[Rfam]
This 33-nucleotide sequence belongs to the Rfam family "S4-Flavobacteria ribosomal protein leader".
RNA sequence: GAGUAUCGGAGGAGGAAGCCUUAAUUCAUAUUC
Numbered sequence: 001g002a003g004u005a006u007c008g009g010a011g012g013a014g015g016a017a018g019c020c021u022u023a024a025u026u027c028a029u030a031u032u033c
Base pairs, nucleotide, nucleotide: 001033002032003031004030005029006028008027009022010021011020012019
It is annotated as a cis-regulatory leader. Clan: Ribosomal Protein S4 Leader clan. The base pairs follow the family's consensus structure, which is taken from published work. The sequence is in the family's curated seed alignment. A reference for the family is Eckert and Weinberg (2020), "Discovery of 20 novel ribosomal leader candidates in bacteria and archaea", BMC Microbiol.